[Rfam]
Nucleotides: 085
Stems, first nucleotide, its partner, number of pairs: 001083004006079004012072006019066001022063001024061002027059003031054003037050001040047001
Number, partner (000 for none) and nucleotide at each position: 001083u002082g003081a004080a005000g006079u007078g008077c009076u010000c011000u012072g013071a014070c015069a016068u017067u018000a019066g020000g021000a022063c023000a024061u025060g026000u027059g028058g029057c030000u031054g032053c033052c034000g035000u036000g037050g038000u039000a040047u041000g042000g043000u044000a045000g046000g047040a048000a049000c050037c051000a052033g053032g054031c055000u056000c057029g058028c059027c060025c061024a062000g063022g064000g065000u066019c067017a068016a069015u070014g071013u072012u073000c074000u075000c076009a077008g078007u079006g080004u081003u082002c083001a084000g085000u